A member of the RNA family "permuted transfer-messenger RNA" from Candidatus Neoehrlichia procyonis, 218 nucleotides long. Taxonomically the source falls in Candidatus Neoehrlichia procyonis (Bacteria, Pseudomonadota, Rickettsiales, Candidatus Neoehrlichia). The match comes from Rfam's covariance-model search (121 bits).
[Rfam]
RNA sequence: GGCAAUAAAAACUUCUCAGAAUAGGUGUAUUGGACCCGAGGGCAGUGCUCGGCAUCUCCACUUUUUUAAGGGGAUGAAACAGGAUUGACAGGCAUAGUAAAGGAGACAGUUGUUGCUCGGUGAGAAUGCAGCCGUAAAUGCGCAAAAUGAUAAGUGCAAACGACAAUCUCGUUGCCGCUAAUGAUAACUAUGGAUAUGCUAAUUUAGCAGCUGCUUAG
Numbered sequence: 001g002g003c004a005a006u007a008a009a010a011a012c013u014u015c016u017c018a019g020a021a022u023a024g025g026u027g028u029a030u031u032g033g034a035c036c037c038g039a040g041g042g043c044a045g046u047g048c049u050c051g052g053c054a055u056c057u058c059c060a061c062u063u064u065u066u067u068a069a070g071g072g073g074a075u076g077a078a079a080c081a082g083g084a085u086u087g088a089c090a091g092g093c094a095u096a097g098u099a100a101a102g103g104a105g106a107c108a109g110u111u112g113u114u115g116c117u118c119g120g121u122g123a124g125a126a127u128g129c130a131g132c133c134g135u136a137a138a139u140g141c142g143c144a145a146a147a148u149g150a151u152a153a154g155u156g157c158a159a160a161c162g163a164c165a166a167u168c169u170c171g172u173u174g175c176c177g178c179u180a181a182u183g184a185u186a187a188c189u190a191u192g193g194a195u196a197u198g199c200u201a202a203u204u205u206a207g208c209a210g211c212u213g214c215u216u217a218g
Base pairs, nucleotide, nucleotide: 001117002116003115004114005113014106015105016104017103026094027093028092030091031090032089036052037051038050039049040048053076054075055074056073057072058071059070118134119133120132121131